RNA sequence: AUAAACUUAAUUUAAACACACACAUACACUAUGACUGCGUGUCGGGGUGUCCGCUUGCGGAUCGAUACAAAGGGUGUAUGGAGGCCUAAC
Number, nucleotide and partner (000 for none) at each position: 001a000002u000003a000004a000005a000006c000007u000008u000009a000010a000011u000012u000013u000014a000015a000016a000017c000018a000019c000020a000021c000022a000023c080024a079025u078026a077027c076028a075029c074030u073031a000032u000033g000034a000035c000036u071037g000038c000039g068040u067041g066042u065043c064044g063045g000046g000047g000048u000049g062050u061051c060052c059053g058054c000055u000056u000057g000058c053059g052060g051061a050062u049063c044064g043065a042066u041067a040068c039069a000070a000071a036072g000073g030074g029075u028076g027077u026078a025079u024080g023081g000082a000083g000084g000085c000086c000087u000088a000089a000090c000
Shown here is a 90-nucleotide RNA sequence from Marisediminitalea aggregata, a member of the family "t44 RNA". A search with the family's covariance model found it, with a score of 59 bits. On this family, see Tjaden et al., Nucleic Acids Res 2002: "Transcriptome analysis of Escherichia coli using high-density oligonucleotide probe arrays". Lineage of the source: Bacteria > Pseudomonadati > Gammaproteobacteria > Alteromonadales > Marisediminitalea. About the family: This family consists of a number of bacterial RNA genes of between 135 and 170 bases in length. The t44 gene has been identified in several species of enteric bacteria but homologs have also been identified in Pseudomonas and Coxiella species. The t44 gene is found between the map and rpsB genes in all species in the full alignment apart from Shigella flexneri. The function of this RNA is unknown.